[Rfam]
RNA sequence: UGGUCGGGAGGUGUCCGGUGGGACGGACGCCAGGAAUUGACCGGAAAGCCCGCUCUCAGAUGGGUCUCGUGCCGUAGCCCAGCGGCGUGAAC
Numbered sequence: 001u002g003g004u005c006g007g008g009a010g011g012u013g014u015c016c017g018g019u020g021g022g023a024c025g026g027a028c029g030c031c032a033g034g035a036a037u038u039g040a041c042c043g044g045a046a047a048g049c050c051c052g053c054u055c056u057c058a059g060a061u062g063g064g065u066c067u068c069g070u071g072c073c074g075u076a077g078c079c080c081a082g083c084g085g086c087g088u089g090a091a092c
Stems, first nucleotide, its partner, number of pairs: 001043005010031008067090008
RNA: Rhodo-rpoB RNA
Organism: Loktanella sp. IMCC34160